Shown here is a 150-nucleotide sequence from Badhamia polycephala, a member of the family "U1 spliceosomal RNA". Pairs were carried over by alignment from the consensus structure, which is taken from published work. The source organism's lineage runs through Eukaryota, Myxogastria, Myxogastromycetidae, Physariida and Badhamia.

[Rfam]
RNA sequence: ACCUGGCCGGGGGAAGUCGGUGAUCAAGACGGCCGAGUCCCUAGUUGGGGAACCUCUCCUGCACUUGAGAGGGGCUCCUUCUAUGAUUGCCUUCGGGUAACUCAACGGCAUAAUUUGUGAUAGCGUGGGGUGCGCUUGUCGCGCCCUGCA
Numbered sequence: 001a002c003c004u005g006g007c008c009g010g011g012g013g014a015a016g017u018c019g020g021u022g023a024u025c026a027a028g029a030c031g032g033c034c035g036a037g038u039c040c041c042u043a044g045u046u047g048g049g050g051a052a053c054c055u056c057u058c059c060u061g062c063a064c065u066u067g068a069g070a071g072g073g074g075c076u077c078c079u080u081c082u083a084u085g086a087u088u089g090c091c092u093u094c095g096g097g098u099a100a101c102u103c104a105a106c107g108g109c110a111u112a113a114u115u116u117g118u119g120a121u122a123g124c125g126u127g128g129g130g131u132g133c134g135c136u137u138g139u140c141g142c143g144c145c146c147u148g149c150a
Base pairs, nucleotide, nucleotide: 006109007108008107009106010042011041012040013039014038017036018035019034020033021032043082044081047079049076050075053073054072055071056069057068084104085103086102087100088099089098090096091095125149126148127147128146129145131143132142133141134140
Clan: U1 clan. It is annotated as a spliceosomal small nuclear RNA. U1 is a small nuclear RNA (snRNA) component of the spliceosome (involved in pre-mRNA splicing). Its 5' end forms complementary base pairs with the 5' splice junction, thus defining the 5' donor site of an intron.